[Rfam]
RNA sequence: CCCAUUUCGCGAAGGGAUGUUCCGAGCGAAUCCGGUGGCCGCAUAUAUUGCGAGCCAGAUAGGGCAGAACGCGCAAGUCCGUGCAGACCACGGCGUGCCGCAUUGCGUUGCUCCAGGCGCCUGACGCCGCCGAAGAGCCCGCCGCCCGAAGGCGCCCGCGUGCGCAUCAAAAAAGGCCUUCAUCCUGCGAUGAAGGCCUUUUACU
Numbered sequence: 001c002c003c004a005u006u007u008c009g010c011g012a013a014g015g016g017a018u019g020u021u022c023c024g025a026g027c028g029a030a031u032c033c034g035g036u037g038g039c040c041g042c043a044u045a046u047a048u049u050g051c052g053a054g055c056c057a058g059a060u061a062g063g064g065c066a067g068a069a070c071g072c073g074c075a076a077g078u079c080c081g082u083g084c085a086g087a088c089c090a091c092g093g094c095g096u097g098c099c100g101c102a103u104u105g106c107g108u109u110g111c112u113c114c115a116g117g118c119g120c121c122u123g124a125c126g127c128c129g130c131c132g133a134a135g136a137g138c139c140c141g142c143c144g145c146c147c148g149a150a151g152g153c154g155c156c157c158g159c160g161u162g163c164g165c166a167u168c169a170a171a172a173a174a175g176g177c178c179u180u181c182a183u184c185c186u187g188c189g190a191u192g193a194a195g196g197c198c199u200u201u202u203a204c205u
Stems, first nucleotide, its partner, number of pairs: 002035002004031002007029004014023003036057004040052004062147004071101003074097001079093005105142003110138004116131004152165004171202014
Rfam assigns this 205-nucleotide sequence from Burkholderia gladioli to the family "Burkholderia sRNA 11".
The sequence is in the family's curated seed alignment.
Identified by RNA-seq, RACE and Northern blot. Strongly expressed in biofilm.
The family's consensus secondary structure was predicted with RNAfold.
By type it is a small RNA.